[Rfam]
Annotation
A member of the RNA family "DUF3268 RNA" from Firmicutes bacterium CAG:94, 130 nucleotides long. By type it is a small RNA.
RNA sequence: AGUGGAAGCUUGUGCUCAGGCUUUCAGGUGCGGAGGAAGGUACCCCUCCGCCAGCACCCAUCCUGCGGAUGGGGAACCUGUUACGGAGCAGCGAAGGCGUGAGGCUUUGCCCUCCACAAUAGCGCAAGCU
Numbered sequence: 001a002g003u004g005g006a007a008g009c010u011u012g013u014g015c016u017c018a019g020g021c022u023u024u025c026a027g028g029u030g031c032g033g034a035g036g037a038a039g040g041u042a043c044c045c046c047u048c049c050g051c052c053a054g055c056a057c058c059c060a061u062c063c064u065g066c067g068g069a070u071g072g073g074g075a076a077c078c079u080g081u082u083a084c085g086g087a088g089c090a091g092c093g094a095a096g097g098c099g100u101g102a103g104g105c106u107u108u109g110c111c112c113u114c115c116a117c118a119a120u121a122g123c124g125c126a127a128g129c130u
Stems, first nucleotide, its partner, number of pairs: 007130010025080002028077002030051007057073007085115003091110006
Dot-bracket structure: ......((((((((((........((.(((((((((........))))))).....(((((((...)))))))..)).))....(((...((((((........))))))..))).....))))))))))